[Rfam]
RNA sequence: GUCUUCCCCGGCUGAACGCCGGGGCCUCAUUGAAGC
Numbered sequence: 001g002u003c004u005u006c007c008c009c010g011g012c013u014g015a016a017c018g019c020c021g022g023g024g025c026c027u028c029a030u031u032g033a034a035g036c
Stems, first nucleotide, its partner, number of pairs: 006024007
Dot-bracket structure: .....(((((((.....)))))))............